[Rfam]
RNA sequence: GGAUGAAGGUCUUCGGCCUUCGAAACGUCCUGUGUCGAACGCCGAAGUCACCACAUCCUGUGGA
Numbered sequence: 001g002g003a004u005g006a007a008g009g010u011c012u013u014c015g016g017c018c019u020u021c022g023a024a025a026c027g028u029c030c031u032g033u034g035u036c037g038a039a040c041g042c043c044g045a046a047g048u049c050a051c052c053a054c055a056u057c058c059u060g061u062g063g064a
Base pairs, nucleotide, nucleotide: 011047012046013045014044015043016042017041022036023035025033026032051063052062053061054060
RNA: Bacillaceae-1 RNA